Shown here is a 160-nucleotide RNA sequence from Paenibacillus algicola, a member of the family "FMN riboswitch aptamer (RFN element)". The source organism's lineage runs through Bacteria, Bacillati, Bacillota, Caryophanales and Paenibacillus. Gene Ontology term of the family: FMN binding.

[Rfam]
RNA sequence: AUGGAUCUUCGGGGUAGGGUGAAAUUCCUGACCGGCGGUGAUGGCAUGAAUCUCUUAAGGCAUUCAUGUAUAAGCCCGCGACUCGCUGUAUGGUUUAUACAGCGACUGACCUGGUGGAACUCCAGGGCCGACGGUAAAGUCCGGAUGGGAGAAGAUCAAU
Numbered sequence: 001a002u003g004g005a006u007c008u009u010c011g012g013g014g015u016a017g018g019g020u021g022a023a024a025u026u027c028c029u030g031a032c033c034g035g036c037g038g039u040g041a042u043g044g045c046a047u048g049a050a051u052c053u054c055u056u057a058a059g060g061c062a063u064u065c066a067u068g069u070a071u072a073a074g075c076c077c078g079c080g081a082c083u084c085g086c087u088g089u090a091u092g093g094u095u096u097a098u099a100c101a102g103c104g105a106c107u108g109a110c111c112u113g114g115u116g117g118a119a120c121u122c123c124a125g126g127g128c129c130g131a132c133g134g135u136a137a138a139g140u141c142c143g144g145a146u147g148g149g150a151g152a153a154g155a156u157c158a159a160u
Stems, first nucleotide, its partner, number of pairs: 004157007017029003031140002033130002035079004074128002083105002110126005132143003